[Rfam]
RNA sequence: CGUCUGCCGACAAUGGCACUGGAAGAAUUCACGGGGACAUUGACUCCCGUGGUUCGUCAGUGCCUUUGCCGGCGGACG
Numbered sequence: 001c002g003u004c005u006g007c008c009g010a011c012a013a014u015g016g017c018a019c020u021g022g023a024a025g026a027a028u029u030c031a032c033g034g035g036g037a038c039a040u041u042g043a044c045u046c047c048c049g050u051g052g053u054u055c056g057u058c059a060g061u062g063c064c065u066u067u068g069c070c071g072g073c074g075g076a077c078g
Stems, first nucleotide, its partner, number of pairs: 003076007013066001015064004020059003025054002029052006

The family of this 78-nucleotide RNA from Amphibalanus amphitrite is "mir-263 microRNA precursor family".
The match comes from Rfam's covariance-model search (58 bits).
Rfam 15.1 lists 368 matches to the family in 211 species.
Pairs were carried over by alignment from the consensus structure, which was predicted with RNAalifold.
Lineage of the source: Eukaryota > Opisthokonta > Mandibulata > Communostraca > Amphibalanus.